[Rfam]
ZMP/ZTP riboswitch aptamer (pfl RNA motif): an 83-nucleotide sequence from Gleimia coleocanis.
RNA sequence: UGGAAGUGUCGUAACUGGCGCAGGUGGAAUACCACCGGGGAGCGAUAACCUGGCCUCGCUGGCCGCCCGCCUGGGUCUGCGAG
Numbered sequence: 001u002g003g004a005a006g007u008g009u010c011g012u013a014a015c016u017g018g019c020g021c022a023g024g025u026g027g028a029a030u031a032c033c034a035c036c037g038g039g040g041a042g043c044g045a046u047a048a049c050c051u052g053g054c055c056u057c058g059c060u061g062g063c064c065g066c067c068c069g070c071c072u073g074g075g076u077c078u079g080c081g082a083g
Stems, first nucleotide, its partner, number of pairs: 003051001007047006015039002017071004024035004061077004